[Rfam]
RNA sequence: UACUGGUACAGCUCUUCUAGAAUUUGUCUAAUAGGUUUUCUGCCUUUUCCUGGAAGACCUUC
Numbered sequence: 001u002a003c004u005g006g007u008a009c010a011g012c013u014c015u016u017c018u019a020g021a022a023u024u025u026g027u028c029u030a031a032u033a034g035g036u037u038u039u040c041u042g043c044c045u046u047u048u049c050c051u052g053g054a055a056g057a058c059c060u061u062c
Stems, first nucleotide, its partner, number of pairs: 034059009
A member of the RNA family "U7 small nuclear RNA" from Orycteropus afer, 62 nucleotides long. It scores 45 bits against the family's covariance model. The family's consensus secondary structure was predicted with PFOLD. Rfam 15.1 lists 10,439 matches to the family in 569 species.